[Rfam]
Rfam assigns this 114-nucleotide sequence from Thermoflavimicrobium daqui to the family "azaaromatic riboswitch aptamer (yjdF RNA)". NCBI's taxonomy places the organism under Bacteria, Bacillati, Caryophanales, Thermoactinomycetaceae, Thermoflavimicrobium.
RNA sequence: AAUAGGUAGUGUAAAAACACGAAUCGGUUGGUAGUCCGAUUGCAUGAAAUCGACUUUUCAUGUCAGUAACCUUCCCUUACUCCCCUAGGGAUGUCCAUCACUACUUAUUCAACA
Numbered sequence: 001a002a003u004a005g006g007u008a009g010u011g012u013a014a015a016a017a018c019a020c021g022a023a024u025c026g027g028u029u030g031g032u033a034g035u036c037c038g039a040u041u042g043c044a045u046g047a048a049a050u051c052g053a054c055u056u057u058u059c060a061u062g063u064c065a066g067u068a069a070c071c072u073u074c075c076c077u078u079a080c081u082c083c084c085c086u087a088g089g090g091a092u093g094u095c096c097a098u099c100a101c102u103a104c105u106u107a108u109u110c111a112a113c114a
Base pairs, nucleotide, nucleotide: 004106005105006104007103008102009101010100011099022041023040024039025038026037027036042063043062044061045060046059047058048057049056073091074090075089076088